A member of the RNA family "epsC RNA" from Paenibacillaceae bacterium GAS479, 115 nucleotides long. A search with the family's covariance model found it, with a score of 97 bits. The base pairs follow the family's consensus structure, which is taken from published work. By type it is a cis-regulatory element. The source organism's lineage runs through Bacteria, Bacillati, Bacilli, Caryophanales and Paenibacillaceae.

RNA sequence: AGGUAAUGCCUACCGCACCUCUAUCACUGUAGGCACUCGGUUAUACUGUGGGUUCGACAGCGGACCUUAGACGUAAAUCGUCGAUGGUAUAGUGUGAGGCGGGGUUUAAUGCCCU
Numbered sequence: 001a002g003g004u005a006a007u008g009c010c011u012a013c014c015g016c017a018c019c020u021c022u023a024u025c026a027c028u029g030u031a032g033g034c035a036c037u038c039g040g041u042u043a044u045a046c047u048g049u050g051g052g053u054u055c056g057a058c059a060g061c062g063g064a065c066c067u068u069a070g071a072c073g074u075a076a077a078u079c080g081u082c083g084a085u086g087g088u089a090u091a092g093u094g095u096g097a098g099g100c101g102g103g104g105u106u107u108a109a110u111g112c113c114c115u
Stems, first nucleotide, its partner, number of pairs: 001020004007035007036098004040093008050067007070082004101115005